Rfam assigns this 82-nucleotide sequence from Tychaedon coryphoeus to the family "Small nucleolar RNA SNORD103/SNORD85".
On this family, see Huttenhofer et al., EMBO J 2001: "RNomics: an experimental approach that identifies 201 candidates for novel, small, non-messenger RNAs in mouse".
Rfam links the family to the GO terms RNA processing and nucleolus.
Taxonomically the source falls in Tychaedon (Eukaryota, Euteleostomi, Sauria, Saurischia).
The base pairs follow the family's consensus structure.
By type it is a C/D-box small nucleolar RNA.
[Rfam]
RNA sequence: UCUGGCAGUGAUGCCACUCUUGCCCUCUCUGAGAACUCUGUUCAGUAAUGAGCCUCUCUGUGCUCACAGCAGCUGAGCCAGG
Numbered sequence: 001u002c003u004g005g006c007a008g009u010g011a012u013g014c015c016a017c018u019c020u021u022g023c024c025c026u027c028u029c030u031g032a033g034a035a036c037u038c039u040g041u042u043c044a045g046u047a048a049u050g051a052g053c054c055u056c057u058c059u060g061u062g063c064u065c066a067c068a069g070c071a072g073c074u075g076a077g078c079c080a081g082g
Stems, first nucleotide, its partner, number of pairs: 001082006